The record is a 100-nucleotide RNA from Triticum aestivum, which matches "Small nucleolar RNA Z103" in Rfam. The organism belongs to Triticum, within Eukaryota. Rfam 15.1 lists 2,844 matches to the family in 233 species. The base pairs follow the family's consensus structure, which was predicted with PFOLD. It is annotated as a C/D-box small nucleolar RNA. Rfam links the family to the GO terms nucleolus and RNA processing.

[Rfam]
RNA sequence: GUGGAAGUGAGGAUCCUUUCCGCAGUUGACCGACUAUAAUUAUAUUGUGCUCAAAUGUAAUCCUUUAUCAGAGGAUUCCAAGCCAAAAAAAUCGAUCCAU
Numbered sequence: 001g002u003g004g005a006a007g008u009g010a011g012g013a014u015c016c017u018u019u020c021c022g023c024a025g026u027u028g029a030c031c032g033a034c035u036a037u038a039a040u041u042a043u044a045u046u047g048u049g050c051u052c053a054a055a056u057g058u059a060a061u062c063c064u065u066u067a068u069c070a071g072a073g074g075a076u077u078c079c080a081a082g083c084c085a086a087a088a089a090a091a092u093c094g095a096u097c098c099a100u
Base pairs, nucleotide, nucleotide: 001100002099003098004097005096